RNA sequence: ACCGUGUACUUACCUACUAUAUAGUGGGCGAGAUACACGUAUUUCAGCUACUAUAUAGACGGCAAGUACGCGGUUU
Numbered sequence: 001a002c003c004g005u006g007u008a009c010u011u012a013c014c015u016a017c018u019a020u021a022u023a024g025u026g027g028g029c030g031a032g033a034u035a036c037a038c039g040u041a042u043u044u045c046a047g048c049u050a051c052u053a054u055a056u057a058g059a060c061g062g063c064a065a066g067u068a069c070g071c072g073g074u075u076u
Stems, first nucleotide, its partner, number of pairs: 001074011013062002017058011030045002033042003